This 368-nucleotide RNA sequence from Granulicatella sp. zg-ZJ belongs to the Rfam family "Bacterial RNase P class B". It scores 323 bits against the family's covariance model. The organism belongs to Granulicatella, within Bacteria.
[Rfam]
RNA sequence: GACUUCGGAUUAUUGCGGUUUAGUAUCUAAGCUGAGGAAAGUCCAUGCUCGCACAAGCUGAAAUGCUUGUAGUGUUCGUGCUUAGCGAAACAAUAAGCUAAGGCAACUAUUAGUUGACGGCAGAAAAAAUGGCUAAGGCUUAGGCUAUGUCAAAGUAUUCUUGAAAGUGCCACAGUGACGAAGCAAUACUGGAAACAGAUUGGUGGAACGCGGUAAACCCCUCGAGCGAGCAACCCAAACGUAUGGUAGGGGCACUCUUUAUAGGAAUAACAACGAAAAAAGAGGUGUAUCAAUGAUACACAGACAGAUAAUAAUCGCUAUUUACUCUGCUCCUGACAGAUAAAUAGUACAGAACAUGGCUUAUAGAA
Numbered sequence: 001g002a003c004u005u006c007g008g009a010u011u012a013u014u015g016c017g018g019u020u021u022a023g024u025a026u027c028u029a030a031g032c033u034g035a036g037g038a039a040a041g042u043c044c045a046u047g048c049u050c051g052c053a054c055a056a057g058c059u060g061a062a063a064u065g066c067u068u069g070u071a072g073u074g075u076u077c078g079u080g081c082u083u084a085g086c087g088a089a090a091c092a093a094u095a096a097g098c099u100a101a102g103g104c105a106a107c108u109a110u111u112a113g114u115u116g117a118c119g120g121c122a123g124a125a126a127a128a129a130u131g132g133c134u135a136a137g138g139c140u141u142a143g144g145c146u147a148u149g150u151c152a153a154a155g156u157a158u159u160c161u162u163g164a165a166a167g168u169g170c171c172a173c174a175g176u177g178a179c180g181a182a183g184c185a186a187u188a189c190u191g192g193a194a195a196c197a198g199a200u201u202g203g204u205g206g207a208a209c210g211c212g213g214u215a216a217a218c219c220c221c222u223c224g225a226g227c228g229a230g231c232a233a234c235c236c237a238a239a240c241g242u243a244u245g246g247u248a249g250g251g252g253c254a255c256u257c258u259u260u261a262u263a264g265g266a267a268u269a270a271c272a273a274c275g276a277a278a279a280a281a282g283a284g285g286u287g288u289a290u291c292a293a294u295g296a297u298a299c300a301c302a303g304a305c306a307g308a309u310a311a312u313a314a315u316c317g318c319u320a321u322u323u324a325c326u327c328u329g330c331u332c333c334u335g336a337c338a339g340a341u342a343a344a345u346a347g348u349a350c351a352g353a354a355c356a357u358g359g360c361u362u363a364u365a366g367a368a
Base pairs, nucleotide, nucleotide: 004368005367006366007364008316009315010314011313012312013311014310016034017033018032019031020030021029039362040361041360043359044358045357046356047355048230049229050228051227052226053070054069055068056067057066058065076225077224078223080221081102082101083100084099085098086097103118104116105115106114107113108112119220120219122161123160124159125158130152131151132150133149137146138145139144167218168217169214170213171212184202185201186200187199189198190197191196234251235250236249255284256283257282258281259280260279285301286300287299288298289297290296318347319346320345321344322343323342324341326339